[Rfam]
RNA sequence: AAUCUGUCAUGGAUAACCCAGUGGAAGGCUCACCGCCAUGCCAAUUACCCUGCUUCUGCUGCCAAGCCAGCGGGAAAGGUGCCUGGUACGAAUCCUGGGGUUGGCAUUUUCACUCGUGCGAGUAAUCCACGACGCUGGAAGCCACUAAGCAAUGGAGAUGACCCUUGAGGGAAGCAAUUCUGCAGAGACAUUUCCACCCUGGGAUGGCGUCACCAGAUUACACCUUCCUGUUACAGGAACUUUGGCAAUUUGGUGGGACAACUACUACUU
Numbered sequence: 001a002a003u004c005u006g007u008c009a010u011g012g013a014u015a016a017c018c019c020a021g022u023g024g025a026a027g028g029c030u031c032a033c034c035g036c037c038a039u040g041c042c043a044a045u046u047a048c049c050c051u052g053c054u055u056c057u058g059c060u061g062c063c064a065a066g067c068c069a070g071c072g073g074g075a076a077a078g079g080u081g082c083c084u085g086g087u088a089c090g091a092a093u094c095c096u097g098g099g100g101u102u103g104g105c106a107u108u109u110u111c112a113c114u115c116g117u118g119c120g121a122g123u124a125a126u127c128c129a130c131g132a133c134g135c136u137g138g139a140a141g142c143c144a145c146u147a148a149g150c151a152a153u154g155g156a157g158a159u160g161a162c163c164c165u166u167g168a169g170g171g172a173a174g175c176a177a178u179u180c181u182g183c184a185g186a187g188a189c190a191u192u193u194c195c196a197c198c199c200u201g202g203g204a205u206g207g208c209g210u211c212a213c214c215a216g217a218u219u220a221c222a223c224c225u226u227c228c229u230g231u232u233a234c235a236g237g238a239a240c241u242u243u244g245g246c247a248a249u250u251u252g253g254u255g256g257g258a259c260a261a262c263u264a265c266u267a268c269u270u
Stems, first nucleotide, its partner, number of pairs: 002014003020266005029257007038249002041245003047242001051238001053236001056073006074227003078224004083216005088210003092205009102144001103142001105141001107140004111134001114132005120127002145149001153196007164187003171180003

About this RNA: Shown here is a 270-nucleotide sequence from Penicillium italicum, a member of the family "Fungal signal recognition particle RNA". The match comes from Rfam's covariance-model search (170 bits). On this family, see Wild et al., Curr Opin Struct Biol 2002: "Towards the structure of the mammalian signal recognition particle". The family's consensus secondary structure is taken from published work. Its Rfam clan is "SRP clan". NCBI's taxonomy places the organism under Eukaryota, Pezizomycotina, Eurotiales, Aspergillaceae, Penicillium. The family has 50 seed sequences and 748 matches in Rfam 15.1.